RNA sequence: AUGGAGGAUGCUUGGCAGGAGCGUCUCCAUGGUUCUUGAGAGCUGCGUAAGCAGUACAGCGGUAGAAGGAUGGAGGACAAUGGCUGAGCUGGGCUCCUCCUCAUCAAUCAUCAGUUUUUAUUUGCCCAUGCCUCUCAUGGCCUUCUUCCCUGGCUUCCAGUUCCAGAUGGCUCGGUGAGGCGUGGACAGAAACCGGCAAGUCAGAAAUCGGCAAUGGUGAGCUCCUACAGGAGCCUA
Number, nucleotide and partner (000 for none) at each position: 001a000002u000003g000004g000005a000006g000007g000008a000009u000010g000011c000012u000013u000014g000015g000016c000017a000018g000019g000020a000021g000022c000023g000024u000025c000026u000027c000028c000029a000030u000031g000032g000033u000034u000035c000036u000037u000038g000039a000040g000041a000042g000043c000044u000045g000046c000047g000048u000049a000050a000051g000052c000053a000054g000055u000056a000057c000058a000059g000060c000061g100062g099063u000064a000065g000066a000067a000068g000069g000070a000071u000072g000073g000074a000075g000076g000077a000078c000079a000080a000081u000082g000083g000084c000085u000086g000087a000088g000089c000090u000091g000092g000093g000094c000095u000096c000097c000098u000099c062100c061101u000102c000103a000104u000105c000106a000107a000108u000109c000110a000111u000112c000113a000114g193115u192116u191117u190118u189119u188120a000121u000122u000123u000124g000125c000126c000127c000128a000129u000130g000131c180132c179133u178134c000135u000136c000137a000138u000139g000140g000141c000142c000143u000144u000145c000146u000147u000148c000149c000150c000151u000152g000153g000154c000155u000156u000157c000158c000159a000160g000161u000162u000163c000164c000165a000166g000167a000168u000169g000170g000171c000172u000173c000174g000175g000176u000177g000178a133179g132180g131181c000182g000183u000184g000185g000186a000187c000188a119189g118190a117191a116192a115193c114194c000195g000196g000197c000198a000199a000200g000201u000202c000203a000204g000205a000206a000207a000208u000209c000210g000211g000212c000213a000214a000215u000216g000217g000218u000219g000220a000221g234222c233223u232224c231225c000226u000227a000228c000229a000230g000231g224232a223233g222234c221235c000236u000237a000
Early nodulin 40: a 237-nucleotide sequence from Panicum miliaceum. The literature on the family includes a 2007 paper in Nucleic Acids Res by Gultyaev and Roussis, "Identification of conserved secondary structures and expansion segments in enod40 RNAs reveals new enod40 homologues in plants".